[Rfam]
RNA: Streptomyces RNA 1601
RNA sequence: GACGACCGGCUGGACAUCUCUGUGUCCGGCCCACAAGUGGAGGCUCCGAUCUCCCACCUGGCCGCCCUCCGGGCGGCGGGUCACCGGUCAGGCGGCGCCCAUCGUUCCGUACGGACGAUGGAAGUCGCCCGAUGUGCGCCCCGCGACGUGUCGCGGCGGUGCUCCGGUAAUCGAGGAGCAUCCGCCUGUGUCCCGUCCGGGGCAUUUUUC
Numbered sequence: 001g002a003c004g005a006c007c008g009g010c011u012g013g014a015c016a017u018c019u020c021u022g023u024g025u026c027c028g029g030c031c032c033a034c035a036a037g038u039g040g041a042g043g044c045u046c047c048g049a050u051c052u053c054c055c056a057c058c059u060g061g062c063c064g065c066c067c068u069c070c071g072g073g074c075g076g077c078g079g080g081u082c083a084c085c086g087g088u089c090a091g092g093c094g095g096c097g098c099c100c101a102u103c104g105u106u107c108c109g110u111a112c113g114g115a116c117g118a119u120g121g122a123a124g125u126c127g128c129c130c131g132a133u134g135u136g137c138g139c140c141c142c143g144c145g146a147c148g149u150g151u152c153g154c155g156g157c158g159g160u161g162c163u164c165c166g167g168u169a170a171u172c173g174a175g176g177a178g179c180a181u182c183c184g185c186c187u188g189u190g191u192c193c194c195g196u197c198c199g200g201g202g203c204a205u206u207u208u209u210c
Stems, first nucleotide, its partner, number of pairs: 004089006012027002028082005034060002037057004041052002061077007091129005099121008138203006144195002152190003155186005161179005